[Rfam]
RNA sequence: GUUGCUGUAGUGCGGGUUGUAGUUGAUGAAGACGAAGCCGCGCGCCUGGUCGAUGGCGUGAAACAGCGGGUUCCAGUCGAACAUCGCCAGCAUGAAUCCCGGCAGCGUGUUGGCGAGGAACAUCUUGCCCGAGGCGAUCAUGUUGGCGCGCUG
Numbered sequence: 001g002u003u004g005c006u007g008u009a010g011u012g013c014g015g016g017u018u019g020u021a022g023u024u025g026a027u028g029a030a031g032a033c034g035a036a037g038c039c040g041c042g043c044g045c046c047u048g049g050u051c052g053a054u055g056g057c058g059u060g061a062a063a064c065a066g067c068g069g070g071u072u073c074c075a076g077u078c079g080a081a082c083a084u085c086g087c088c089a090g091c092a093u094g095a096a097u098c099c100c101g102g103c104a105g106c107g108u109g110u111u112g113g114c115g116a117g118g119a120a121c122a123u124c125u126u127g128c129c130c131g132a133g134g135c136g137a138u139c140a141u142g143u144u145g146g147c148g149c150g151c152u153g
Stems, first nucleotide, its partner, number of pairs: 002035003006032001008030001013025003037057004041052002064153005070082004086147009098134002100131003103127003107123002110119002